[Rfam]
Record summary:
Shown here is a 36-nucleotide RNA sequence from Vombatus ursinus, a member of the family "Iron response element I". The match comes from Rfam's covariance-model search (36 bits). NCBI's taxonomy places the organism under Eukaryota, Eumetazoa, Deuterostomia, Metatheria, Vombatus. For this family Rfam cites "Identification of the iron-responsive element for the translational regulation of human ferritin mRNA" (Hentze et al., Science, 1987).

RNA sequence: UGGUUUCCUGCUUUAACAGUGUUUGAACAGAACCCA
Numbered sequence: 001u002g003g004u005u006u007c008c009u010g011c012u013u014u015a016a017c018a019g020u021g022u023u024u025g026a027a028c029a030g031a032a033c034c035c036a
Stems, first nucleotide, its partner, number of pairs: 001036003005032003010028001012027005017021001
Dot-bracket structure: (((.(((..(.((((((...).)))))).))).)))